[Rfam]
RNA sequence: AUAAGUCUGAUUGACAUUGAUGAAUUGUCUCUUCAUUUUGACAACUGAUGGAUAAAGUAAAGAUGGCGAGAUAUCGUUUCAGUCGUCAUUUCUUCGGUUGACGAUCUGAUUGUUGCUCGUCCACAA
Numbered sequence: 001a002u003a004a005g006u007c008u009g010a011u012u013g014a015c016a017u018u019g020a021u022g023a024a025u026u027g028u029c030u031c032u033u034c035a036u037u038u039u040g041a042c043a044a045c046u047g048a049u050g051g052a053u054a055a056a057g058u059a060a061a062g063a064u065g066g067c068g069a070g071a072u073a074u075c076g077u078u079u080c081a082g083u084c085g086u087c088a089u090u091u092c093u094u095c096g097g098u099u100g101a102c103g104a105u106c107u108g109a110u111u112g113u114u115g116c117u118c119g120u121c122c123a124c125a126a
Stems, first nucleotide, its partner, number of pairs: 008035003013029004018024001065122002067119004073110004082105007090097002